Shown here is a 90-nucleotide sequence from Streptomyces aurantiogriseus, a member of the family "ZMP/ZTP riboswitch aptamer (pfl RNA motif)".
Pairs were carried over by alignment from the consensus structure, which is taken from published work.
Rfam links the family to the GO terms one-carbon metabolic process and regulation of purine nucleotide biosynthetic process.
RNA sequence: CGAGCAGGCCGUGACUGGCGCGCUGGGAUGGGACGGACCAUCGGGGAGCGGCCUUGAGUGACAACAGUGCCGUGCGCCUGGGCCGAACCG
Numbered sequence: 001c002g003a004g005c006a007g008g009c010c011g012u013g014a015c016u017g018g019c020g021c022g023c024u025g026g027g028a029u030g031g032g033a034c035g036g037a038c039c040a041u042c043g044g045g046g047a048g049c050g051g052c053c054u055u056g057a058g059u060g061a062c063a064a065c066a067g068u069g070c071c072g073u074g075c076g077c078c079u080g081g082g083c084c085g086a087a088c089c090g
Base pairs, nucleotide, nucleotide: 006054007053008052009051010050011049012048015045016044017078018077019076020075021074028041029040030039031038069083070082071081